About this RNA:
This 63-nucleotide RNA from Rotaria sordida belongs to the Rfam family "Selenocysteine insertion sequence 1". Pairs were carried over by alignment from the consensus structure, which is taken from published work. The organism belongs to Rotaria, within Eukaryota. For this family Rfam cites "A survey of metazoan selenocysteine insertion sequences" (Lambert et al., Biochimie, 2002). By type it is a cis-regulatory element. About the family: The incorporation of selenocysteine into a protein sequence is directed by an in-frame UGA codon (usually a stop codon) within the coding region of the mRNA. Selenoprotein mRNAs contain a conserved secondary structure in the 3' UTR that is required for the distinction of UGA stop from UGA selenocysteine.

[Rfam]
RNA sequence: GAGAUUCGUAUGAUGUCUAUUAUCUAAACUGUUCAUCAGAGGGUAAUAGACUGAUAAUAUCUU
Numbered sequence: 001g002a003g004a005u006u007c008g009u010a011u012g013a014u015g016u017c018u019a020u021u022a023u024c025u026a027a028a029c030u031g032u033u034c035a036u037c038a039g040a041g042g043g044u045a046a047u048a049g050a051c052u053g054a055u056a057a058u059a060u061c062u063u
Base pairs, nucleotide, nucleotide: 001063002062003061004060005059015051016050017049018048019047020046021045022044023043024042029039030038031037